[Rfam]
RNA: mir-27 microRNA precursor family
Organism: Danionella cerebrum
RNA sequence: AGCGGGUGCAGAGCUUGGCCGAUUGGUGAACGUAAAGCAUUUGUUUUUUUUUUGUUCACAGUGGCUAAGUUCUUCACGUGAA
Number, nucleotide and partner (000 for none) at each position: 001a000002g000003c000004g000005g000006g000007u000008g000009c000010a000011g072012a071013g070014c069015u068016u067017g066018g065019c064020c063021g000022a000023u000024u000025g000026g059027u058028g057029a056030a055031c054032g053033u000034a000035a000036a000037g000038c000039a000040u000041u000042u000043g000044u000045u000046u000047u000048u000049u000050u000051u000052u000053u032054g031055u030056u029057c028058a027059c026060a000061g000062u000063g020064g019065c018066u017067a016068a015069g014070u013071u012072c011073u000074u000075c000076a000077c000078g000079u000080g000081a000082a000